[Rfam]
RNA sequence: AUAGCCUCCGAAUAACGAGAAAGUGAAAUAUAGGAACACUUUCUGGUUCAGACAGAGGCUUAUAUCAAAACUCGAAUCAGUUUUUGAGGGUGAAAGAGCUUUACUCUUUUUUUGCUCAUCAAAUCCAUCAUCCGUUUCUUGGAUAGAUUCGAAUAUCU
Numbered sequence: 001a002u003a004g005c006c007u008c009c010g011a012a013u014a015a016c017g018a019g020a021a022a023g024u025g026a027a028a029u030a031u032a033g034g035a036a037c038a039c040u041u042u043c044u045g046g047u048u049c050a051g052a053c054a055g056a057g058g059c060u061u062a063u064a065u066c067a068a069a070a071c072u073c074g075a076a077u078c079a080g081u082u083u084u085u086g087a088g089g090g091u092g093a094a095a096g097a098g099c100u101u102u103a104c105u106c107u108u109u110u111u112u113u114g115c116u117c118a119u120c121a122a123a124u125c126c127a128u129c130a131u132c133c134g135u136u137u138c139u140u141g142g143a144u145a146g147a148u149u150c151g152a153a154u155a156u157c158u
Base pairs, nucleotide, nucleotide: 003060004059005058006057007056008055014048015047016046018044019043020042021041023039024038025037073151074150075149076148077147078146081122082121085118086117087116089115093112094111095109096108097107098106130144131143132142133141
Small nucleolar RNA snoR138: a 158-nucleotide RNA from Brassica rapa. The base pairs follow the family's consensus structure, which was predicted with mfold. It is annotated as an H/ACA-box small nucleolar RNA. The source organism's lineage runs through Eukaryota, Streptophytina, Embryophyta, Brassicales and Brassica. Its family is annotated with RNA processing and nucleolus in the Gene Ontology.